A member of the RNA family "Guanidine-I riboswitch aptamer" from Marinomonas transparens, 108 nucleotides long. The source organism's lineage runs through Bacteria, Gammaproteobacteria, Oceanospirillales, Oceanospirillaceae and Marinomonas.
RNA sequence: CCAAUAGAGAGCUAGGGUUCCGAUUAGACGUAAAACAUCUGAUGGCUGGUCCGAGAGCUUUCGACCUUGAAGUUUAAGGUUACACGGCGGGAUAAAAGCCCGGGAGAC
Dot-bracket structure: ......((((((..((...(((((((((.........))))))..).)).))....))))))((((((((...)))))))).(.[...(((.......))).)..]..